A member of the RNA family "Ribosomal protein L10 leader" from Planktothricoides sp. SR001, 164 nucleotides long. The family's RNA type in Rfam is cis-regulatory leader. The family's consensus secondary structure was predicted with CMfinder. This family is a putative r-protein leader autoregulatory structure found in B. subtilis and other low-GC Gram-positive bacteria. It is located in the 5' untranslated regions of mRNAs encoding ribosomal proteins L10 and L12 (rplJ-rplL). A Rho-independent transcription terminator structure that is probably involved in regulation is included at the 3' end.
[Rfam]
RNA sequence: CCAAUUAAAUAAAAGCAGCCGAAAAAAGCAGGAGCCAAAAGCUUAAUUGCCUGCCGAGGUUUAUGCGAGAAUUUCUAGGUAACGCGAUCCGGAGUUGAUUGUCCAGAUCGCACCAGAAUUAUGUGUAACCCUGGCAGCAUCGCUGGGGUUUUUGAUUUUGGAGG
Numbered sequence: 001c002c003a004a005u006u007a008a009a010u011a012a013a014a015g016c017a018g019c020c021g022a023a024a025a026a027a028g029c030a031g032g033a034g035c036c037a038a039a040a041g042c043u044u045a046a047u048u049g050c051c052u053g054c055c056g057a058g059g060u061u062u063a064u065g066c067g068a069g070a071a072u073u074u075c076u077a078g079g080u081a082a083c084g085c086g087a088u089c090c091g092g093a094g095u096u097g098a099u100u101g102u103c104c105a106g107a108u109c110g111c112a113c114c115a116g117a118a119u120u121a122u123g124u125g126u127a128a129c130c131c132u133g134g135c136a137g138c139a140u141c142g143c144u145g146g147g148g149u150u151u152u153u154g155a156u157u158u159u160g161g162a163g164g
Stems, first nucleotide, its partner, number of pairs: 028054005034042002128149008